[Rfam]
RNA sequence: CCUGGAAAUAAAUUUCCAGGCUAUUUUCUGUCGUCCCUAUGGGACU
Numbered sequence: 001c002c003u004g005g006a007a008a009u010a011a012a013u014u015u016c017c018a019g020g021c022u023a024u025u026u027u028c029u030g031u032c033g034u035c036c037c038u039a040u041g042g043g044a045c046u
Base pairs, nucleotide, nucleotide: 001020002019003018004017005016006015007014008013033045034044035043036042037041

This 46-nucleotide sequence from Desulfonema limicola belongs to the Rfam family "Acido-Lenti-1 RNA". By type it is a small RNA. The base pairs follow the family's consensus structure, which is taken from published work. The family has 87 seed sequences and 2,607 matches in Rfam 15.1. Taxonomically the source falls in Desulfonema (Bacteria, Pseudomonadati, Desulfobacteria, Desulfococcaceae).